[Rfam]
RNA sequence: GCCGCCAUGGUGAAAUUGGUAGACACGCUGCUCUUAGGAAGCAGUGCUCAAGCAUCUCGGUUCGAGUCCGAGUGGCGGCA
Numbered sequence: 001g002c003c004g005c006c007a008u009g010g011u012g013a014a015a016u017u018g019g020u021a022g023a024c025a026c027g028c029u030g031c032u033c034u035u036a037g038g039a040a041g042c043a044g045u046g047c048u049c050a051a052g053c054a055u056c057u058c059g060g061u062u063c064g065a066g067u068c069c070g071a072g073u074g075g076c077g078g079c080a
Stems, first nucleotide, its partner, number of pairs: 001079007010026003028044005056072005
A member of the RNA family "tRNA" from Oryza sativa, 80 nucleotides long. The base pairs follow the family's consensus structure, which is taken from published work. By type it is a transfer RNA. Rfam's curators put it in the seed alignment. About the family: Transfer RNA (tRNA) molecules are approximately 80 nucleotides in length.